[Rfam]
RNA: mir-263 microRNA precursor family
RNA sequence: GAAGUUCCCGCAAUGGCACUGGAAGAAUUCACGGGAGUGUUGAAAGGUUUCUCCAGUGGUUCUGCAGUGCCAUGCUGGGCGCUCC
Numbered sequence: 001g002a003a004g005u006u007c008c009c010g011c012a013a014u015g016g017c018a019c020u021g022g023a024a025g026a027a028u029u030c031a032c033g034g035g036a037g038u039g040u041u042g043a044a045a046g047g048u049u050u051c052u053c054c055a056g057u058g059g060u061u062c063u064g065c066a067g068u069g070c071c072a073u074g075c076u077g078g079g080c081g082c083u084c085c
Stems, first nucleotide, its partner, number of pairs: 003083003007079004013073006020066002025061002029059004034054001